Nucleotides: 058
Base pairs, nucleotide, nucleotide: 001056002055003054005053006052007051008050009049010048014044015043017041018040019039020038022036023035
Number, partner (000 for none) and nucleotide at each position: 001056a002055c003054g004000u005053u006052g007051a008050g009049c010048c011000a012000u013000a014044c015043g016000c017041a018040c019039a020038a021000u022036a023035c024000c025000u026000g027000a028000a029000g030000a031000u032000g033000a034000a035023g036022u037000u038020u039019u040018g041017u042000u043015c044014g045000u046000u047000c048010g049009g050008c051007u052006c053005g054003c055002g056001u057000u058000a